[Rfam]
RNA sequence: UAAAUCGUAUGACAACGAGGGAGAGCACGCAUGUAAACACUCAUGAAUCCAUAUUUGCAUGAACGCCGACUCGCGUGCUCUCUCUCGUUGUCAACCAGAU
Dot-bracket structure: .........(((((.((..((.(.((((((..((..................................))..)))))).).))..)).))))).......
Numbered sequence: 001u002a003a004a005u006c007g008u009a010u011g012a013c014a015a016c017g018a019g020g021g022a023g024a025g026c027a028c029g030c031a032u033g034u035a036a037a038c039a040c041u042c043a044u045g046a047a048u049c050c051a052u053a054u055u056u057g058c059a060u061g062a063a064c065g066c067c068g069a070c071u072c073g074c075g076u077g078c079u080c081u082c083u084c085u086c087g088u089u090g091u092c093a094a095c096c097a098g099a100u
Stems, first nucleotide, its partner, number of pairs: 010093005016087002020083002023080001025078006033070002